RNA sequence: GUCGUAUCCUAUUUUCGUUCCUUGCUUCCGCAAGAUUGGCGACUGGUCUUACAGUCGGAGGCUGAUUAACCCGUAAGGAGCAGUAAUG
Numbered sequence: 001g002u003c004g005u006a007u008c009c010u011a012u013u014u015u016c017g018u019u020c021c022u023u024g025c026u027u028c029c030g031c032a033a034g035a036u037u038g039g040c041g042a043c044u045g046g047u048c049u050u051a052c053a054g055u056c057g058g059a060g061g062c063u064g065a066u067u068a069a070c071c072c073g074u075a076a077g078g079a080g081c082a083g084u085a086a087u088g
Stems, first nucleotide, its partner, number of pairs: 017081007024062006034048003
Dot-bracket structure: ................(((((((((((((....(((.........)))........))))))............))))))).......